[Rfam]
RNA: Purine riboswitch aptamer
Organism: Anaerobacillus arseniciselenatis
RNA sequence: AACGAUAUAUAAUAUUUUCUUCAUAUAAUAUUGGGGAUAUGGCCCGAAAGUUUCUACCUAAUGACCGUAAAUCGUUAGACUAUGAAGAGAAGCAAAUAUACU
Number, nucleotide and partner (000 for none) at each position: 001a000002a000003c000004g000005a000006u000007a000008u000009a000010u000011a000012a000013u000014a000015u000016u000017u000018u088019c087020u086021u085022c084023a083024u082025a081026u000027a000028a000029u049030a000031u047032u046033g045034g044035g043036g000037a000038u000039a000040u000041g000042g000043c035044c034045c033046g032047a031048a000049a029050g000051u000052u000053u000054c000055u000056a000057c000058c078059u077060a076061a075062u074063g073064a072065c000066c000067g000068u000069a000070a000071a000072u064073c063074g062075u061076u060077a059078g058079a000080c000081u025082a024083u023084g022085a021086a020087g019088a018089g000090a000091a000092g000093c000094a000095a000096a000097u000098a000099u000100a000101c000102u000